[Rfam]
RNA sequence: CGCUGGUCUGAAUGUAGAGUUAUUUCAGUUGAUUGUUCAGUCAGAUAGAAUUCCUUGUUCUACGUCCCCCACUCACCUCUACUGCAGUUGACUAGUCUUUU
Numbered sequence: 001c002g003c004u005g006g007u008c009u010g011a012a013u014g015u016a017g018a019g020u021u022a023u024u025u026c027a028g029u030u031g032a033u034u035g036u037u038c039a040g041u042c043a044g045a046u047a048g049a050a051u052u053c054c055u056u057g058u059u060c061u062a063c064g065u066c067c068c069c070c071a072c073u074c075a076c077c078u079c080u081a082c083u084g085c086a087g088u089u090g091a092c093u094a095g096u097c098u099u100u101u
Base pairs, nucleotide, nucleotide: 002096003095004094005093006092007091008090010089011088014085015084016080017079018078019077021075028063029062031060032059
RNA: Y RNA